[Rfam]
RNA sequence: AGCUUUGCACAGUGGCAUGAUUGUAGUCAAUGAGGUUUAUCCAGGGUGCCAUUAUUGCUAAUUGAAAAUUUUUCUCAAUACUCCACCAUGACAACCAGAAAUAUAGUUGGUGUUGACAAUUUUUGACAGUCUCUACAGAGG
Dot-bracket structure: ...................((.((.(((.....((.....))..))))).))..................................((((.((((.(......).)))).))).)..............((((....))))
Numbered sequence: 001a002g003c004u005u006u007g008c009a010c011a012g013u014g015g016c017a018u019g020a021u022u023g024u025a026g027u028c029a030a031u032g033a034g035g036u037u038u039a040u041c042c043a044g045g046g047u048g049c050c051a052u053u054a055u056u057g058c059u060a061a062u063u064g065a066a067a068a069u070u071u072u073u074c075u076c077a078a079u080a081c082u083c084c085a086c087c088a089u090g091a092c093a094a095c096c097a098g099a100a101a102u103a104u105a106g107u108u109g110g111u112g113u114u115g116a117c118a119a120u121u122u123u124u125g126a127c128a129g130u131c132u133c134u135a136c137a138g139a140g141g
Stems, first nucleotide, its partner, number of pairs: 020052002023049002026047003034042002087115001088113003092109004097104001130141004